Rfam assigns this 79-nucleotide sequence from Medicago truncatula to the family "MIR5269 microRNA precursor family". Its family is annotated with miRNA-mediated post-transcriptional gene silencing and RISC complex in the Gene Ontology. The family's consensus secondary structure was predicted with RNAalifold. Lineage of the source: Eukaryota > Streptophytina > Magnoliopsida > Hologalegina > Medicago. It scores 67 bits against the family's covariance model.
RNA sequence: UUAGUUUAAAUCAUUGUGGGUCUACACUUUGAAAAUUUAACCUACACAAAACGGUGGAACAUAUAUUGAUUUCAUUCAA
Dot-bracket structure: ((.(.(.((((((.((((...((((..((((...............))))..).)))....)))).)))))).).).))
Numbered sequence: 001u002u003a004g005u006u007u008a009a010a011u012c013a014u015u016g017u018g019g020g021u022c023u024a025c026a027c028u029u030u031g032a033a034a035a036u037u038u039a040a041c042c043u044a045c046a047c048a049a050a051a052c053g054g055u056g057g058a059a060c061a062u063a064u065a066u067u068g069a070u071u072u073c074a075u076u077c078a079a
Stems, first nucleotide, its partner, number of pairs: 001079002004076001006074001008072006015065004022057003025053001028050004